Description: This 267-nucleotide sequence from Diplodia seriata belongs to the Rfam family "Fungal signal recognition particle RNA". The match comes from Rfam's covariance-model search (140 bits). Pairs were carried over by alignment from the consensus structure, which is taken from published work. Lineage of the source: Eukaryota > Fungi > saccharomyceta > dothideomyceta > Diplodia. A reference for the family is Wild et al. (2002), "Towards the structure of the mammalian signal recognition particle", Curr Opin Struct Biol.
RNA sequence: CGGCUGUAGCGGUCAUUCUCAUCUGAGAGGUGCAUUGAAACCACAACUUCUUUCCCUUCCAAAUGCUGAAACGAGGGCCCAGUUCGAAUCCGGUGGUGCCCGACCAACUCGUAUAGGUAACUUGCGAUGAAGGCGGGCUUAAGCAAUGAAGUCGACCGUUGAGGGAAGCAAUUCUGCAGACACGACUUCACCAUUGGAUGGCGGUGCUGGAAUACCCUCGCUUCGGUUUGGGAUAGGUGUUGUGGACUGAUGAAUCAACCAGGUAUU
Numbered sequence: 001c002g003g004c005u006g007u008a009g010c011g012g013u014c015a016u017u018c019u020c021a022u023c024u025g026a027g028a029g030g031u032g033c034a035u036u037g038a039a040a041c042c043a044c045a046a047c048u049u050c051u052u053u054c055c056c057u058u059c060c061a062a063a064u065g066c067u068g069a070a071a072c073g074a075g076g077g078c079c080c081a082g083u084u085c086g087a088a089u090c091c092g093g094u095g096g097u098g099c100c101c102g103a104c105c106a107a108c109u110c111g112u113a114u115a116g117g118u119a120a121c122u123u124g125c126g127a128u129g130a131a132g133g134c135g136g137g138c139u140u141a142a143g144c145a146a147u148g149a150a151g152u153c154g155a156c157c158g159u160u161g162a163g164g165g166a167a168g169c170a171a172u173u174c175u176g177c178a179g180a181c182a183c184g185a186c187u188u189c190a191c192c193a194u195u196g197g198a199u200g201g202c203g204g205u206g207c208u209g210g211a212a213u214a215c216c217c218u219c220g221c222u223u224c225g226g227u228u229u230g231g232g233a234u235a236g237g238u239g240u241u242g243u244g245g246a247c248u249g250a251u252g253a254a255u256c257a258a259c260c261a262g263g264u265a266u267u
Base pairs, nucleotide, nucleotide: 002014003013004012021264022263023262024261025260029256030255031254033252034251035250038248041245042244043243044242045241046240047239049237050236051235053233054232055231056230067225069223070222072220073219074218075217076216077215079210080209081208082207083206084204085203086202088199089198090197091196092195093194094193095192096191098138099137100136101135102134104132107128109127110126111125112124113123115122116121139143147190148189149188150187151186152185153184158181159180160179165174166173167172